RNA sequence: UGACCAAGGGGCCGGGCUGUUCUGGUUGAGACAUGAUCGGAGUGGCCUAGGGGUACAGGGAGUGCCUCCAGCGUUGGGCCGGGUCAGGAACGGC
Numbered sequence: 001u002g003a004c005c006a007a008g009g010g011g012c013c014g015g016g017c018u019g020u021u022c023u024g025g026u027u028g029a030g031a032c033a034u035g036a037u038c039g040g041a042g043u044g045g046c047c048u049a050g051g052g053g054u055a056c057a058g059g060g061a062g063u064g065c066c067u068c069c070a071g072c073g074u075u076g077g078g079c080c081g082g083g084u085c086a087g088g089a090a091c092g093g094c
Stems, first nucleotide, its partner, number of pairs: 001086005010080004014048005020042008050068007